Notes: Shown here is a 146-nucleotide RNA from Lynx pardinus, a member of the family "U4 spliceosomal RNA". The literature on the family includes a 1997 paper in Nucleic Acids Res by Zwieb, "The uRNA database". Pairs were carried over by alignment from the consensus structure, which is taken from published work. It scores 66 bits against the family's covariance model.

RNA sequence: AGCUUUGCGCAGUGUGGCAUUAUCGUGGCCAAUGAGGUUUACCCAAGGUACGAUUAUUGCUAAUUGAAAAAAAUAAUAAUAAAAUGCUGAAUUUUAUCUUAGAAUUUAAAAAAAAAUUUAAAAGAACUUUGACUUUGGCAUCAGUU
Numbered sequence: 001a002g003c004u005u006u007g008c009g010c011a012g013u014g015u016g017g018c019a020u021u022a023u024c025g026u027g028g029c030c031a032a033u034g035a036g037g038u039u040u041a042c043c044c045a046a047g048g049u050a051c052g053a054u055u056a057u058u059g060c061u062a063a064u065u066g067a068a069a070a071a072a073a074u075a076a077u078a079a080u081a082a083a084a085u086g087c088u089g090a091a092u093u094u095u096a097u098c099u100u101a102g103a104a105u106u107u108a109a110a111a112a113a114a115a116a117u118u119u120a121a122a123a124g125a126a127c128u129u130u131g132a133c134u135u136u137g138g139c140a141u142c143a144g145u146u
Stems, first nucleotide, its partner, number of pairs: 022054005028049003036044002085112001088108009125146004